[Rfam]
RNA sequence: UUCGGUCUGUCCUUAUGUACUAUGACUGCAGCUAGAAAGAAAGCCGCUAAUUUAUAUUCUCCAAUACGUAGUUUUAUUCGUAAUACCUCGUCCUGUAGUUUCUAAGUUCAAGUCUAUUCUUCAGCAAAAAACCGCCUUUGAAGGCACUUUUACUUUUCUAAAUUCAGGUGAAUUUAUUAUGUCUAAUACUAUCCGUGGUACUGUUAAGUGGUUUAACGAAGCUAAAGGUUUUGGUUUCAUCGAGCAGCAAUCUGGUCCUGACGUGUUUGCUCACUUCAGUGCAAUUGCAAGCUCUGGAUUCAAAACUCUGACUGAAGGUCAGCAAGUUGAAUUUACUGUUACUGAUGGCGCUAAAGGCCCUCAGGCAGAGAACAUCGUUGCUCUGUAAUUUUACAGAUAACCUUGUUUGAAAGAAGCCAGUCCUAGUGACUGGCUUUUUUUG
Numbered sequence: 001u002u003c004g005g006u007c008u009g010u011c012c013u014u015a016u017g018u019a020c021u022a023u024g025a026c027u028g029c030a031g032c033u034a035g036a037a038a039g040a041a042a043g044c045c046g047c048u049a050a051u052u053u054a055u056a057u058u059c060u061c062c063a064a065u066a067c068g069u070a071g072u073u074u075u076a077u078u079c080g081u082a083a084u085a086c087c088u089c090g091u092c093c094u095g096u097a098g099u100u101u102c103u104a105a106g107u108u109c110a111a112g113u114c115u116a117u118u119c120u121u122c123a124g125c126a127a128a129a130a131a132c133c134g135c136c137u138u139u140g141a142a143g144g145c146a147c148u149u150u151u152a153c154u155u156u157u158c159u160a161a162a163u164u165c166a167g168g169u170g171a172a173u174u175u176a177u178u179a180u181g182u183c184u185a186a187u188a189c190u191a192u193c194c195g196u197g198g199u200a201c202u203g204u205u206a207a208g209u210g211g212u213u214u215a216a217c218g219a220a221g222c223u224a225a226a227g228g229u230u231u232u233g234g235u236u237u238c239a240u241c242g243a244g245c246a247g248c249a250a251u252c253u254g255g256u257c258c259u260g261a262c263g264u265g266u267u268u269g270c271u272c273a274c275u276u277c278a279g280u281g282c283a284a285u286u287g288c289a290a291g292c293u294c295u296g297g298a299u300u301c302a303a304a305a306c307u308c309u310g311a312c313u314g315a316a317g318g319u320c321a322g323c324a325a326g327u328u329g330a331a332u333u334u335a336c337u338g339u340u341a342c343u344g345a346u347g348g349c350g351c352u353a354a355a356g357g358c359c360c361u362c363a364g365g366c367a368g369a370g371a372a373c374a375u376c377g378u379u380g381c382u383c384u385g386u387a388a389u390u391u392u393a394c395a396g397a398u399a400a401c402c403u404u405g406u407u408u409g410a411a412a413g414a415a416g417c418c419a420g421u422c423c424u425a426g427u428g429a430c431u432g433g434c435u436u437u438u439u440u441u442g
Stems, first nucleotide, its partner, number of pairs: 004021003008017002027246002031241001039237001042236004047228002051225001059221002062218001065215001070214002074211002079181007093168002097163001104121003134145003183198003250340001252338001254336001260268002271329001273327004280321002282318001286311001290307001295304001347360002350358003362385004366380003370376001388406002391400003411439012

cspA thermoregulator: a 442-nucleotide RNA sequence from Oceanospirillum linum. Rfam classes the family as an RNA thermoregulator. For this family Rfam cites "The cspA mRNA is a thermosensor that modulates translation of the cold-shock protein CspA" (Giuliodori et al., Mol Cell, 2010). The base pairs follow the family's consensus structure, which is taken from published work.